[Rfam]
Rfam assigns this 102-nucleotide sequence from Aquibacillus koreensis to the family "Purine riboswitch aptamer".
The family's consensus secondary structure is taken from published work.
Riboswitches are metabolite binding domains within certain messenger RNAs that serve as precision sensors for their corresponding targets. Allosteric rearrangement of mRNA structure is mediated by ligand binding, and this results in modulation of gene expression. A class of riboswitches that selectively recognises guanine and becomes saturated at concentrations as low as 5 nM. In Bacillus subtilis, this mRNA motif is located on at least five separate transcriptional units that together encode 17 genes that are mostly involved in purine transport and purine nucleotide biosynthesis. It has also been shown that some members of this family are specific for adenine instead.

RNA sequence: AUUAAUAAUGAAAAAUUCCUUCAUAUAUACUCGAUGAUAUGGUUCGAAAGUUUCUACCAGAACGCCGUAAAUGUUCUGACUAUGAAGGCAGGUAUCAACGGU
Numbered sequence: 001a002u003u004a005a006u007a008a009u010g011a012a013a014a015a016u017u018c019c020u021u022c023a024u025a026u027a028u029a030c031u032c033g034a035u036g037a038u039a040u041g042g043u044u045c046g047a048a049a050g051u052u053u054c055u056a057c058c059a060g061a062a063c064g065c066c067g068u069a070a071a072u073g074u075u076c077u078g079a080c081u082a083u084g085a086a087g088g089c090a091g092g093u094a095u096c097a098a099c100g101g102u
Stems, first nucleotide, its partner, number of pairs: 018088008031047004058078007
Dot-bracket structure: .................((((((((.....((((.........))))..........(((((((.......)))))))..))))))))..............
The organism belongs to Aquibacillus, within Bacteria. The family has 133 seed sequences and 4,097 matches in Rfam 15.1.